Rfam assigns this 64-nucleotide RNA sequence from Gorilla gorilla to the family "U7 small nuclear RNA". Pairs were carried over by alignment from the consensus structure, which was predicted with PFOLD. A reference for the family is Spycher et al. (1994), "3' end processing of mouse histone pre-mRNA: evidence for additional base-pairing between U7 snRNA and pre-mRNA", Nucleic Acids Res. Rfam describes the family as follows. Animal histone pre-mRNAs are spliced by a different mechanism than nuclear pre-mRNAs and self-splicing introns. The source organism's lineage runs through Eukaryota, Craniata, Vertebrata, Simiiformes and Gorilla.

[Rfam]
RNA sequence: UAGUGUUACAGCUUUUUUAGAAUUUGUCUAGCAGGCUUUCUGGUUUUCACCAUAAAAUGCCCCA
Numbered sequence: 001u002a003g004u005g006u007u008a009c010a011g012c013u014u015u016u017u018u019a020g021a022a023u024u025u026g027u028c029u030a031g032c033a034g035g036c037u038u039u040c041u042g043g044u045u046u047u048c049a050c051c052a053u054a055a056a057a058u059g060c061c062c063c064a
Base pairs, nucleotide, nucleotide: 034061035060036059037056038055039054041052042051043050044049